RNA sequence: CCUGUUAUUCCAUUAUCAGUAGCCUAUCGUCACCGAAGCGGCUGGCAACGGCCGUGAGGCAGCAUGACGAGAAAAGGUAGCCCUCCCGAAAGGGUCAAGCCAAAACCGCGAGGCAGAGGCGAAAAGCUGGAAGCAACGUCCGGCUGGGGAG
Numbered sequence: 001c002c003u004g005u006u007a008u009u010c011c012a013u014u015a016u017c018a019g020u021a022g023c024c025u026a027u028c029g030u031c032a033c034c035g036a037a038g039c040g041g042c043u044g045g046c047a048a049c050g051g052c053c054g055u056g057a058g059g060c061a062g063c064a065u066g067a068c069g070a071g072a073a074a075a076g077g078u079a080g081c082c083c084u085c086c087c088g089a090a091a092g093g094g095u096c097a098a099g100c101c102a103a104a105a106c107c108g109c110g111a112g113g114c115a116g117a118g119g120c121g122a123a124a125a126g127c128u129g130g131a132a133g134c135a136a137c138g139u140c141c142g143g144c145u146g147g148g149g150a151g
Stems, first nucleotide, its partner, number of pairs: 002019003006015002028069005034059001038055007085094003095122002099120001106113002126144006
The family of this 151-nucleotide sequence is "Group II catalytic intron D1-D4-7". Group II introns are found in rRNA, tRNA and mRNA of organelles in fungi, plants and protists, and also in mRNA in bacteria. The sequence is in the family's curated seed alignment. The base pairs follow the family's consensus structure. Gene Ontology term of the family: Group II intron splicing.